[Rfam]
RNA sequence: UAGUUGAUGAAAGAUCAAUCGAGGUAAGAGCCAAGUCGCCUCGUAGCUGACAGGCAACUGGUGGAGAGAUCCUAAGGUUGAAGCCCUGUGACAAUGUAACUCUGUAAAGAGUGCUAGCAAAACAGCAGGCCGUAACAUCA
Numbered sequence: 001u002a003g004u005u006g007a008u009g010a011a012a013g014a015u016c017a018a019u020c021g022a023g024g025u026a027a028g029a030g031c032c033a034a035g036u037c038g039c040c041u042c043g044u045a046g047c048u049g050a051c052a053g054g055c056a057a058c059u060g061g062u063g064g065a066g067a068g069a070u071c072c073u074a075a076g077g078u079u080g081a082a083g084c085c086c087u088g089u090g091a092c093a094a095u096g097u098a099a100c101u102c103u104g105u106a107a108a109g110a111g112u113g114c115u116a117g118c119a120a121a122a123c124a125g126c127a128g129g130c131c132g133u134a135a136c137a138u139c140a
Base pairs, nucleotide, nucleotide: 020043021042022041023040024039050089051088052087053086054085055080056079057078058077059076064071065070096114097113099112100111101110102109117133118132
Overview:
A member of the RNA family "Group II catalytic intron D1-D4-4" from Paenibacillus psychroresistens, 140 nucleotides long. About the family: Group II introns are found in rRNA, tRNA and mRNA of organelles in fungi, plants and protists, and also in mRNA in bacteria.